[Rfam]
RNA: mir-666 microRNA precursor family
Organism: Rattus norvegicus
RNA sequence: UCUGCCUGCGUGGAGCGGGCACGGCUGUGAGAGCCCCCUAGGUACAGCGGGGCUGCAGCGUGAUCGCCUGCUCACGCACAGGAAGU
Numbered sequence: 001u002c003u004g005c006c007u008g009c010g011u012g013g014a015g016c017g018g019g020c021a022c023g024g025c026u027g028u029g030a031g032a033g034c035c036c037c038c039u040a041g042g043u044a045c046a047g048c049g050g051g052g053c054u055g056c057a058g059c060g061u062g063a064u065c066g067c068c069u070g071c072u073c074a075c076g077c078a079c080a081g082g083a084a085g086u
Stems, first nucleotide, its partner, number of pairs: 002085002005082004010077003013073008022062002024059005032054006038047002